This 376-nucleotide sequence from Mycoplasmopsis gallinacea belongs to the Rfam family "transfer-messenger RNA". The organism belongs to Mycoplasmopsis, within Bacteria. Rfam's curators write: Bacterial tmRNA, also known as 10Sa RNA or SsrA, is named for its dual tRNA and mRNA-like properties. Its role is to liberate the mRNA from a stalled ribosome. To accomplish this part of the tmRNA is used as a reading frame that ends in a translation stop signal. The broken mRNA is replaced in the ribosome by the tmRNA and translation of the tmRNA leads to addition of a proteolysis tag to the incomplete protein enabling recognition by a protease. Pairs were carried over by alignment from the consensus structure, which is taken from published work.
[Rfam]
RNA sequence: GGGGGUGUAAUGGUUUCGACACAUUUAGGGACUUACAUAAUGCAGUAGUGUGGCAGACUAUAAUUGCUACUAGGCUUUCUUAAACGGAAAAUCAAAAGAAAAAGAAUUCAAUGCAUUUGCAUUAAUGAAUUCACAACAAUCAAAUCUUGCUUUUGCUUAAUUAAAUGCAAUCAAGUUGCUUUAAGUAACUCCUUUAGCUUAAAGUAGGUCUUAAAGGAUAUAUAACUAAAACUGACAAGUUAGUUAUGAAUUUUUGUCAAAUUGCAGGGAUUAAUUUUCUUUCAUUUUAUGCUUGCAAUUACAAAAUGAAAUAAACUGUAGAUUUGUGUAUGAGCUUUAAGUGUGGACACGGGUUCGACUCCCGUCAUCUCCACCA
Dot-bracket structure: (((((((............((((((((((..(((((((((..(((((((...[.[.)))........].]............................................................................((((.((((......)))).))))........((((((((...[[..[[.))))))))........]].]]....((((((((........[.)))))))).........]......(((((.((.(((.[[.[[[.)))..)).)))))........]].].]]...)))).....)))))))..)).))))))))))...(((((.......))))))))))))....
Description:
By type it is a non-coding RNA gene. The family is grouped with related families in Rfam's "tRNA clan".